RNA sequence: UCUUAUAAAAGGCUGAAUCCUCAUUAAAUGAGGUACGGAGGAACCAAUUUUGGGGUUAAUCAAAAAGACAACUAAUAAAUGUACAUAUAAUAAACUUCUUUGUCUUUUUCGUAGGGCGUCCUAUUACCCGAACCCGACAGCUAACUUCGGAAGCCAUAAAUAGGAGGCUA
Numbered sequence: 001u002c003u004u005a006u007a008a009a010a011g012g013c014u015g016a017a018u019c020c021u022c023a024u025u026a027a028a029u030g031a032g033g034u035a036c037g038g039a040g041g042a043a044c045c046a047a048u049u050u051u052g053g054g055g056u057u058a059a060u061c062a063a064a065a066a067g068a069c070a071a072c073u074a075a076u077a078a079a080u081g082u083a084c085a086u087a088u089a090a091u092a093a094a095c096u097u098c099u100u101u102g103u104c105u106u107u108u109u110c111g112u113a114g115g116g117c118g119u120c121c122u123a124u125u126a127c128c129c130g131a132a133c134c135c136g137a138c139a140g141c142u143a144a145c146u147u148c149g150g151a152a153g154c155c156a157u158a159a160a161u162a163g164g165a166g167g168c169u170a
Stems, first nucleotide, its partner, number of pairs: 011155004019033006036149005045052002053135003061111001063109005114129003
Dot-bracket structure: ..........((((....((((((...))))))..(((((....((....))(((.....(.(((((.....................................))))).)..(((..........)))...))).........)))))..))))...............